[Rfam]
RNA sequence: GCAGCGCAAGCCUGAACGGAUUGAUUCUCUGUAGAAUCAAUAGGCUUGGUAGUUGCGAUGUUGUGUUUGCAAACUCGCAAUUCGAGUUCGGUAGAUUCUACCACCUGUUUCGUUUAUUAAUUUUAAUGACGAGGCAUCAAAUUCUGAUAGUUGACCUGUCUGUCAAUUUUUUUAUACCGUCUACUUUAGGCGGUAUUUUUUUAU
Numbered sequence: 001g002c003a004g005c006g007c008a009a010g011c012c013u014g015a016a017c018g019g020a021u022u023g024a025u026u027c028u029c030u031g032u033a034g035a036a037u038c039a040a041u042a043g044g045c046u047u048g049g050u051a052g053u054u055g056c057g058a059u060g061u062u063g064u065g066u067u068u069g070c071a072a073a074c075u076c077g078c079a080a081u082u083c084g085a086g087u088u089c090g091g092u093a094g095a096u097u098c099u100a101c102c103a104c105c106u107g108u109u110u111c112g113u114u115u116a117u118u119a120a121u122u123u124u125a126a127u128g129a130c131g132a133g134g135c136a137u138c139a140a141a142u143u144c145u146g147a148u149a150g151u152u153g154a155c156c157u158g159u160c161u162g163u164c165a166a167u168u169u170u171u172u173u174a175u176a177c178c179g180u181c182u183a184c185u186u187u188a189g190g191c192g193g194u195a196u197u198u199u200u201u202u203a204u
Base pairs, nucleotide, nucleotide: 009046010045011044012043016041021040022039023038024037025036026035027034028033073087074086075085076084077083090102091101092100093099094098116171119168120167121166122165174196175195176194177193178192179191180190
Description
A member of the RNA family "GcvB RNA" from Vibrio sp. 10N.286.49.B3, 204 nucleotides long. On this family, see Miyakoshi et al., EMBO J 2015: "Cross talk between ABC transporter mRNAs via a target mRNA-derived sponge of the GcvB small RNA". The family's RNA type in Rfam is non-coding RNA gene. The gcvB gene encodes a small untranslated RNA involved in expression of the dipeptide and oligopeptide transport systems in Escherichia coli. Included several unknown homologues in alignment (Bateman A pers obs). It base-pairs with SorC. This interaction triggers the degradation of GcvB by RNase E, alleviating the GcvB-mediated mRNA repression of other amino acid-related transport and metabolic genes.